[Rfam]
RNA sequence: CUGGAGGGGCCAAAACCCCUCCAGAAUCAUUUUUGGAGGGGCCAAAGCCCCUCCAGAAUCAUUUUUGGAGGGGCCAAAGCCCCUCCAGAAUCAUUCUGGAGGGGCCAAUGCCCAUCCAGAAUCAUU
Numbered sequence: 001c002u003g004g005a006g007g008g009g010c011c012a013a014a015a016c017c018c019c020u021c022c023a024g025a026a027u028c029a030u031u032u033u034u035g036g037a038g039g040g041g042c043c044a045a046a047g048c049c050c051c052u053c054c055a056g057a058a059u060c061a062u063u064u065u066u067g068g069a070g071g072g073g074c075c076a077a078a079g080c081c082c083c084u085c086c087a088g089a090a091u092c093a094u095u096c097u098g099g100a101g102g103g104g105c106c107a108a109u110g111c112c113c114a115u116c117c118a119g120a121a122u123c124a125u126u
Base pairs, nucleotide, nucleotide: 003054004053005052006051007050016041017040018039019038020037021036022035023034024033025032026031066118067117068116069115071113072112073111079105080104082102083101084100085099086098087097088096089095
Nematode snoRNA ceN39: a 126-nucleotide sequence from Puccinia coronata.
Lineage of the source: Eukaryota > Basidiomycota > Pucciniales > Pucciniaceae > Puccinia coronata var. avenae.
Rfam 15.1 lists 95 matches to the family in 44 species.
Its family is annotated with nucleolus and RNA processing in the Gene Ontology.